[Rfam]
RNA sequence: UGCAAAAUGAUGAGACCUAUCAAUCUGAAGAUAAUGUAGAAAACACUGUAAUGGUCUUCAAAGUUCUCUGAUUGCU
Number, nucleotide and partner (000 for none) at each position: 001u000002g075003c074004a073005a072006a000007a000008u000009g000010a000011u000012g000013a000014g000015a000016c000017c000018u000019a000020u000021c000022a000023a000024u000025c000026u000027g000028a000029a000030g000031a000032u000033a000034a000035u000036g000037u000038a000039g000040a000041a000042a000043a000044c000045a000046c000047u000048g000049u000050a000051a000052u000053g000054g000055u000056c000057u000058u000059c000060a000061a000062a000063g000064u000065u000066c000067u000068c000069u000070g000071a000072u005073u004074g003075c002076u000
Annotation:
This 76-nucleotide RNA sequence from Musa troglodytarum belongs to the Rfam family "Small nucleolar RNA R160". Rfam's curators write: snoR160 is a C/D box small nucleolar RNA, which acts as a methylation guide for 25S ribosomal RNA in plants. snoR160 has been alternatively named snoZ270 in rice. Rfam classes the family as a C/D-box small nucleolar RNA. A reference for the family is Chen et al. (2003), "The high diversity of snoRNAs in plants: identification and comparative study of 120 snoRNA genes from Oryza sativa", Nucleic Acids Res. The source organism's lineage runs through Eukaryota, Euphyllophyta, Magnoliopsida, Musaceae and Musa.